[Rfam]
RNA: F6 TB sRNA
Organism: Pseudonocardia sediminis
RNA sequence: AGGUGAGCCCCGUGGCACCACCGGACCCCCGACCUGGUCGUGCCGCGGGGCUUUCCC
Dot-bracket structure: .((.(.((((((((((((.(((.............))).)))))))))))).).)).